[Rfam]
RNA sequence: CAUUGAAGUGAUGAUAUCCGAUUCAGUAAAGUUUAUAUGUCGAUCCCAAAAAUCAUCCAGACUACAAUUAUCUGAUCAAUG
Number, nucleotide and partner (000 for none) at each position: 001c081002a080003u079004u078005g077006a076007a000008g000009u000010g000011a000012u000013g000014a000015u000016a000017u000018c000019c000020g000021a000022u000023u000024c000025a000026g000027u000028a000029a000030a000031g000032u000033u000034u000035a000036u000037a000038u000039g000040u000041c000042g000043a000044u000045c000046c000047c000048a000049a000050a000051a000052a000053u000054c000055a000056u000057c000058c000059a000060g000061a000062c000063u000064a000065c000066a000067a000068u000069u000070a000071u000072c000073u000074g000075a000076u006077c005078a004079a003080u002081g001
The record is an 81-nucleotide sequence from Nicotiana sylvestris, which matches "Small nucleolar RNA Z155" in Rfam. On this family, see Chen et al., Nucleic Acids Res 2003: "The high diversity of snoRNAs in plants: identification and comparative study of 120 snoRNA genes from Oryza sativa". By type it is a C/D-box small nucleolar RNA. NCBI's taxonomy places the organism under Eukaryota, Spermatophyta, asterids, Solanales, Nicotiana.